[Rfam]
RNA sequence: CUUCACAUAGCCUCCCGGGCUCAUCUGAACUUUUUCACAUGAAGUUAGCAGCCCCAAAGCUCGUGCUAUAUGUUUCGCCACGAAGUGUUGCAGCAUUUUGUACCUUCUAUCCAUGGCUUAUCUUUGUCAAAUCCAUGGCUAGACCC
Numbered sequence: 001c002u003u004c005a006c007a008u009a010g011c012c013u014c015c016c017g018g019g020c021u022c023a024u025c026u027g028a029a030c031u032u033u034u035u036c037a038c039a040u041g042a043a044g045u046u047a048g049c050a051g052c053c054c055c056a057a058a059g060c061u062c063g064u065g066c067u068a069u070a071u072g073u074u075u076c077g078c079c080a081c082g083a084a085g086u087g088u089u090g091c092a093g094c095a096u097u098u099u100g101u102a103c104c105u106u107c108u109a110u111c112c113a114u115g116g117c118u119u120a121u122c123u124u125u126g127u128c129a130a131a132u133c134c135a136u137g138g139c140u141a142g143a144c145c146c
Stems, first nucleotide, its partner, number of pairs: 004065003010060002017054005022048001025044002077139004082134001086129002089126002092123002097116002
Rfam assigns this 146-nucleotide sequence from Capsicum annuum to the family "small nucleolar RNA snoR134". Taxonomically the source falls in Capsicum (Eukaryota, Magnoliopsida, Gunneridae, Solanales). The literature on the family includes a 2009 paper in Nucleic Acids Res by Chen and Wu, "Mining small RNA sequencing data: a new approach to identify small nucleolar RNAs in Arabidopsis". The base pairs follow the family's consensus structure, which was predicted with RNAalifold. Rfam 15.1 lists 792 matches to the family in 228 species. It scores 67 bits against the family's covariance model.